Shown here is a 451-nucleotide RNA sequence from Deinococcus maricopensis, a member of the family "Bacterial RNase P class A". The organism belongs to Deinococcus maricopensis, within Bacteria.
[Rfam]
RNA sequence: CGCGGGAGAAGUUACGGUCGCGCGCCCAGGCCCGCUCGCCCCUCGGGGCAACGCGGGUGAGGACGUGAGGAAAGUCCGGGCACCGCAGGGCAGGAUGCCAGCUAACGGCUGGUCAGCGAGCACACGGCCCGCCACGCCGAACGUACGGGCGGGCACGCGCGAAGUUGAAGGACAGUGCCACAGAAACCAGACCGCCCGCCCCAUCACGCGUGUUCCGGACGCGGGGCGAGUAAGGGUGAAACGGUGCGGUAAGAGCGCACCAGGCCCCACGGCAACGCGGGGCGCUGGUAAACCCCAUCCGGUGCAAGGCCCGACAGCGGGGGAGGAACGGCCCGUUCCCCUGAUCCCCAGGAUGGCCGCUAGAGCCGCGCGGCGACGCGCGCCCCAGAGAGAUGACCGUGACCCACCCGAACGGUGGGGACAGAACCCGGCUUACUCCCUCCCGCACCCA
Numbered sequence: 001c002g003c004g005g006g007a008g009a010a011g012u013u014a015c016g017g018u019c020g021c022g023c024g025c026c027c028a029g030g031c032c033c034g035c036u037c038g039c040c041c042c043u044c045g046g047g048g049c050a051a052c053g054c055g056g057g058u059g060a061g062g063a064c065g066u067g068a069g070g071a072a073a074g075u076c077c078g079g080g081c082a083c084c085g086c087a088g089g090g091c092a093g094g095a096u097g098c099c100a101g102c103u104a105a106c107g108g109c110u111g112g113u114c115a116g117c118g119a120g121c122a123c124a125c126g127g128c129c130c131g132c133c134a135c136g137c138c139g140a141a142c143g144u145a146c147g148g149g150c151g152g153g154c155a156c157g158c159g160c161g162a163a164g165u166u167g168a169a170g171g172a173c174a175g176u177g178c179c180a181c182a183g184a185a186a187c188c189a190g191a192c193c194g195c196c197c198g199c200c201c202c203a204u205c206a207c208g209c210g211u212g213u214u215c216c217g218g219a220c221g222c223g224g225g226g227c228g229a230g231u232a233a234g235g236g237u238g239a240a241a242c243g244g245u246g247c248g249g250u251a252a253g254a255g256c257g258c259a260c261c262a263g264g265c266c267c268c269a270c271g272g273c274a275a276c277g278c279g280g281g282g283c284g285c286u287g288g289u290a291a292a293c294c295c296c297a298u299c300c301g302g303u304g305c306a307a308g309g310c311c312c313g314a315c316a317g318c319g320g321g322g323g324a325g326g327a328a329c330g331g332c333c334c335g336u337u338c339c340c341c342u343g344a345u346c347c348c349c350a351g352g353a354u355g356g357c358c359g360c361u362a363g364a365g366c367c368g369c370g371c372g373g374c375g376a377c378g379c380g381c382g383c384c385c386c387a388g389a390g391a392g393a394u395g396a397c398c399g400u401g402a403c404c405c406a407c408c409c410g411a412a413c414g415g416u417g418g419g420g421a422c423a424g425a426a427c428c429c430g431g432c433u434u435a436c437u438c439c440c441u442c443c444c445g446c447a448c449c450c451a
Base pairs, nucleotide, nucleotide: 002446003445004444005443006442007441008440011436013401014400015399016398017397018396019395021067022066023065024064026062027061072434073433074432076431077430078429079428080427081304082303083302084301088334089333090332091331093300094299095298096297097296098112099111100110101109102108113169114167115166116165117164170295171294175293176292177289178288179287192235193234194231195230197228198227199226200225201224202223243261244260245259246258247257248256263285264283265282266281267280268279270277271276308358309357310356311355319348320347321346322345325339326338327337328336329335365384367382368381369380370379371378372377